[Rfam]
Nucleotides: 327
Base pairs, nucleotide, nucleotide: 006024007023008022009021010020011019025325026324027323028322033305034304035303036302039285040284044068045067046066047065048064049063053061054060075281076280077279078278080111081110085106086105087104089102091100092099093098115132116131117130118129119128135277136276137275138274139273140272141271142270143269151266152265156256157255158254159253163249167245168244169243170242171241173194174193175192176191177190178189195218196217220237222235225232226231291300292299307319308318309317
Number, partner (000 for none) and nucleotide at each position: 001000g002000a003000u004000a005000a006024u007023g008022c009021g010020g011019g012000c013000g014000a015000g016000a017000a018000a019011c020010c021009c022008g023007c024006a025325c026324g027323c028322c029000g030000a031000a032000a033305g034304a035303c036302c037000a038000a039285g040284g041000u042000u043000u044068c045067c046066c047065c048064a049063g050000c051000c052000a053061u054060g055000c056000u057000a058000a059000u060054c061053a062000g063049c064048u065047g066046g067045g068044g069000g070000u071000c072000a073000g074000u075281c076280g077279g078278g079000a080111c081110c082000u083000a084000a085106c086105g087104c088000g089102a090000a091100c092099c093098c094000g095000g096000a097000a098093g099092g100091g101000g102089u103000a104087g105086u106085g107000g108000a109000u110081g111080g112000a113000c114000a115132a116131c117130a118129g119128g120000u121000u122000a123000a124000u125000a126000u127000u128119c129118c130117u131116g132115u133000a134000c135277c136276u137275g138274c139273u140272a141271u142270a143269c144000g145000a146000u147000a148000a149000a150000a151266g152265u153000g154000a155000c156256g157255g158254g159253g160000u161000a162000c163249c164000g165000g166000a167245g168244u169243u170242g171241g172000u173194g174193c175192g176191c177190a178189c179000u180000g181000a182000c183000g184000g185000a186000a187000u188000a189178g190177u191176g192175c193174g194173u195218u196217g197000a198000a199000g200000c201000g202000c203000a204000a205000g206000c207000g208000a209000u210000a211000g212000u213000a214000c215000a216000c217196c218195a219000a220237g221000g222235c223000c224000a225232c226231g227000g228000c229000c230000g231226c232225g233000g234000u235222g236000a237220u238000a239000a240000u241171c242170c243169a244168g245167c246000g247000u248000a249163g250000g251000u252000a253159c254158c255157u256156c257000c258000a259000a260000g261000a262000a263000a264000a265152g266151c267000g268000a269143g270142u271141a272140u273139a274138g275137c276136g277135g278078c279077c280076c281075g282000u283000a284040c285039c286000g287000u288000a289000a290000a291300c292299c293000g294000a295000c296000a297000c298000a299292g300291g301000u302036g303035g304034u305033u306000g307319g308318g309317a310000u311000g312000a313000g314000u315000a316000u317309u318308c319307u320000a321000a322028g323027g324026c325025g326000c327000u